[Rfam]
RNA: Purine riboswitch aptamer
RNA sequence: AAAUAUAUAGUAGUGUGCCUUCAUAUAAAUCUGGUAAUAGGGUCCAGAUGUUUCUACUAAGUUACCUCAAAUAACUUGUCUAUGACGGUGGAUUUAGCGUUU
Numbered sequence: 001a002a003a004u005a006u007a008u009a010g011u012a013g014u015g016u017g018c019c020u021u022c023a024u025a026u027a028a029a030u031c032u033g034g035u036a037a038u039a040g041g042g043u044c045c046a047g048a049u050g051u052u053u054c055u056a057c058u059a060a061g062u063u064a065c066c067u068c069a070a071a072u073a074a075c076u077u078g079u080c081u082a083u084g085a086c087g088g089u090g091g092a093u094u095u096a097g098c099g100u101u102u
Stems, first nucleotide, its partner, number of pairs: 018088002021085005029049006058078007